A member of the RNA family "Small nucleolar RNA SNORD90" from Corythaeola cristata, 112 nucleotides long. Rfam's curators write: snoRNA HBII-295 belongs to the family of C/D snoRNAs. It is the human orthologue of the mouse MBII-295 and has no identified RNA target. On this family, see Huttenhofer et al., EMBO J 2001: "RNomics: an experimental approach that identifies 201 candidates for novel, small, non-messenger RNAs in mouse". The match comes from Rfam's covariance-model search (50 bits). Lineage of the source: Eukaryota > Chordata > Archosauria > Neoaves > Corythaeola. Gene Ontology terms of the family: nucleolus and RNA processing.
RNA sequence: AAUUCCCUUUUUUGUGUCUUAUGAUGAAGCUUCAUAGGGCAGAUUCUGAGCUGAGAAAUGAAAUUUCUCUUCACUGAUACUCUCUAUGCCAUCUGAAGACACUACGUAUUGC
Numbered sequence: 001a002a003u004u005c006c007c008u009u010u011u012u013u014g015u016g017u018c019u020u021a022u023g024a025u026g027a028a029g030c031u032u033c034a035u036a037g038g039g040c041a042g043a044u045u046c047u048g049a050g051c052u053g054a055g056a057a058a059u060g061a062a063a064u065u066u067c068u069c070u071u072c073a074c075u076g077a078u079a080c081u082c083u084c085u086a087u088g089c090c091a092u093c094u095g096a097a098g099a100c101a102c103u104a105c106g107u108a109u110u111g112c
Stems, first nucleotide, its partner, number of pairs: 012104001014102006029092001033088003037083003042078001045077002048074001050072001053069005